[Rfam]
Rfam assigns this 67-nucleotide RNA sequence from Tessaracoccus rhinocerotis to the family "Actino-pnp RNA".
RNA sequence: UCUGGUCCUCGGUAGUGGUCUUCGGGUGCGAUUCGAUCGCCCCCGCGGGCCUCGAUCGAAGGCCGGU
Numbered sequence: 001u002c003u004g005g006u007c008c009u010c011g012g013u014a015g016u017g018g019u020c021u022u023c024g025g026g027u028g029c030g031a032u033u034c035g036a037u038c039g040c041c042c043c044c045g046c047g048g049g050c051c052u053c054g055a056u057c058g059a060a061g062g063c064c065g066g067u
Stems, first nucleotide, its partner, number of pairs: 002066006009059005017051005023045004028040005
Taxonomically the source falls in Tessaracoccus (Bacteria, Actinomycetota, Actinomycetes, Propionibacteriaceae).